[Rfam]
RNA sequence: CAUGCUGUGAUGAGGUGAGCACCAUAUGGUGUUAUAGGGAGUGGAAGUGAGGUUUUAUAGCCUUCUCCGUGAGCCCAUUUUAAUUAAUGACUUCUCCUUCCACCGAGCAUU
Number, nucleotide and partner (000 for none) at each position: 001c000002a110003u109004g108005c107006u000007g000008u000009g000010a000011u000012g000013a000014g000015g000016u000017g000018a000019g000020c000021a000022c000023c000024a000025u000026a000027u000028g000029g000030u000031g000032u000033u000034a000035u000036a000037g000038g000039g000040a000041g000042u000043g000044g000045a000046a000047g000048u000049g000050a000051g000052g000053u000054u000055u000056u000057a000058u000059a000060g000061c000062c000063u000064u000065c000066u000067c000068c000069g000070u000071g000072a000073g000074c000075c000076c000077a000078u000079u000080u000081u000082a000083a000084u000085u000086a000087a000088u000089g000090a000091c000092u000093u000094c000095u000096c000097c000098u000099u000100c000101c000102a000103c000104c000105g000106a000107g005108c004109a003110u002111u000
RNA: Small nucleolar RNA Z152/R70/R12/
Organism: Nicotiana sylvestris